This 176-nucleotide RNA sequence from Oryza meridionalis belongs to the Rfam family "MIR807 microRNA precursor family". Pairs were carried over by alignment from the consensus structure, which was predicted with WAR. The source organism's lineage runs through Eukaryota, Tracheophyta, Spermatophyta, Oryzoideae and Oryza.
[Rfam]
RNA sequence: AACCACAUUACCACUGAAUGGAUUCACCCAUGGGAUAAAGUGGUUAUUCCAUCUAGGAUGAGGACGUGGCAUCCUAUUAAUUUCGUGCGAUGGCUGGUAAUAGCAUGCCAUGUCCUCGUCCUAGGUGAAACAAUCACAUUAUCUCGCGAGUGGAUCCAUUCAUCGAUAGUGUGGUU
Numbered sequence: 001a002a003c004c005a006c007a008u009u010a011c012c013a014c015u016g017a018a019u020g021g022a023u024u025c026a027c028c029c030a031u032g033g034g035a036u037a038a039a040g041u042g043g044u045u046a047u048u049c050c051a052u053c054u055a056g057g058a059u060g061a062g063g064a065c066g067u068g069g070c071a072u073c074c075u076a077u078u079a080a081u082u083u084c085g086u087g088c089g090a091u092g093g094c095u096g097g098u099a100a101u102a103g104c105a106u107g108c109c110a111u112g113u114c115c116u117c118g119u120c121c122u123a124g125g126u127g128a129a130a131c132a133a134u135c136a137c138a139u140u141a142u143c144u145c146g147c148g149a150g151u152g153g154a155u156c157c158a159u160u161c162a163u164c165g166a167u168a169g170u171g172u173g174g175u176u
Base pairs, nucleotide, nucleotide: 001176002175003174004173005172006171007170009168010167012165015162017160018159019158021156022155023154024153025152026151027150031146032145033144035142036141037140038139041136042135043134044133045132047130048129051126052125054123055122057120058119063114064113065112069108070107071106072105074103075102076101077100078099079098086097